[Rfam]
RNA sequence: CCCCAGGCUCCGGGCAACGAGAUCCCGCAAACCCCGCCAGGUCCGGAAGGAAGCAACGGUAGCGGUGUGUCGCGUGUGCCCCGGAUUCCCCUGGGGUCC
Numbered sequence: 001c002c003c004c005a006g007g008c009u010c011c012g013g014g015c016a017a018c019g020a021g022a023u024c025c026c027g028c029a030a031a032c033c034c035c036g037c038c039a040g041g042u043c044c045g046g047a048a049g050g051a052a053g054c055a056a057c058g059g060u061a062g063c064g065g066u067g068u069g070u071c072g073c074g075u076g077u078g079c080c081c082c083g084g085a086u087u088c089c090c091c092u093g094g095g096g097u098c099c
Stems, first nucleotide, its partner, number of pairs: 004093004009085006015076001017075003021071002023067001025065004034059003042051003
RNA: Bacterial small signal recognition particle RNA